Shown here is a 140-nucleotide RNA from Drosophila willistoni, a member of the family "Small nucleolar RNA psi18S-841/snoR66".
Gene Ontology terms of the family: RNA processing and nucleolus.
It is annotated as an H/ACA-box small nucleolar RNA.

RNA sequence: CGCAAGCGCACUCUGUGUCGCAUUCGAAAACCUCAUGUGAUUACAAUUUGUAAGUUUGCCAGAGUAAGGUGUAGCUUCUUAUCCAUAUGAUUAGAUUCCUAACAUGAUAAUCAUUUUGACGAAGUCUACGACAACUUUAU
Numbered sequence: 001c002g003c004a005a006g007c008g009c010a011c012u013c014u015g016u017g018u019c020g021c022a023u024u025c026g027a028a029a030a031c032c033u034c035a036u037g038u039g040a041u042u043a044c045a046a047u048u049u050g051u052a053a054g055u056u057u058g059c060c061a062g063a064g065u066a067a068g069g070u071g072u073a074g075c076u077u078c079u080u081a082u083c084c085a086u087a088u089g090a091u092u093a094g095a096u097u098c099c100u101a102a103c104a105u106g107a108u109a110a111u112c113a114u115u116u117u118g119a120c121g122a123a124g125u126c127u128a129c130g131a132c133a134a135c136u137u138u139a140u
Stems, first nucleotide, its partner, number of pairs: 002059006010051002014045003017041007026034002065139003070133003073127002079122002082119002085116001087114003091110002
Source information: Rfam's curators put it in the seed alignment. psi18S-841 is a member of the H/ACA class of snoRNA. This family is responsible for guiding the modification of uridine 841 in Drosophila 18S rRNA to pseudouridine.